The record is a 135-nucleotide RNA sequence from Jaculus jaculus, which matches "Small nucleolar RNA SNORA72" in Rfam.
Rfam links the family to the GO terms RNA processing and nucleolus.
Rfam's curators write: U72 is a member of the H/ACA class of snoRNAs. The snoRNA gene is located in intron 4 of the ribosomal L30 protein gene in human, mouse and chicken.
The base pairs follow the family's consensus structure, which was predicted with PFOLD.
On this family, see Ganot et al., Genes Dev 1997: "The family of box ACA small nucleolar RNAs is defined by an evolutionarily conserved secondary structure and ubiquitous sequence elements essential for RNA accumulation".
It is annotated as an H/ACA-box small nucleolar RNA.
RNA sequence: GUGUGAAUAUUCUUGCUGUUCUGAUUUUGUAAUAAUCUGGUUAGGUUAAACAUUCGCUAUAUUAAGACCAUGCAUGUGUCCUGAGGCCUAGGUCUUUUCUUUCCAUAGGUUUUUGUUUGUUUGUUUGUUUUUAAU
Numbered sequence: 001g002u003g004u005g006a007a008u009a010u011u012c013u014u015g016c017u018g019u020u021c022u023g024a025u026u027u028u029g030u031a032a033u034a035a036u037c038u039g040g041u042u043a044g045g046u047u048a049a050a051c052a053u054u055c056g057c058u059a060u061a062u063u064a065a066g067a068c069c070a071u072g073c074a075u076g077u078g079u080c081c082u083g084a085g086g087c088c089u090a091g092g093u094c095u096u097u098u099c100u101u102u103c104c105a106u107a108g109g110u111u112u113u114u115g116u117u118u119g120u121u122u123g124u125u126u127g128u129u130u131u132u133a134a135u
Stems, first nucleotide, its partner, number of pairs: 003057003016044003020040002023037004067128002070125001072124002084112007